[Rfam]
RNA: Small nucleolar RNA Z155
RNA sequence: GGUUGAUGUGAGGAUACACCUGUACAGAAACUUGACUGUUGUGUUGAUCAAAAUACAGACUACAAUUAUCUGAUCAACC
Numbered sequence: 001g002g003u004u005g006a007u008g009u010g011a012g013g014a015u016a017c018a019c020c021u022g023u024a025c026a027g028a029a030a031c032u033u034g035a036c037u038g039u040u041g042u043g044u045u046g047a048u049c050a051a052a053a054u055a056c057a058g059a060c061u062a063c064a065a066u067u068a069u070c071u072g073a074u075c076a077a078c079c
Base pairs, nucleotide, nucleotide: 001079002078003077004076005075006074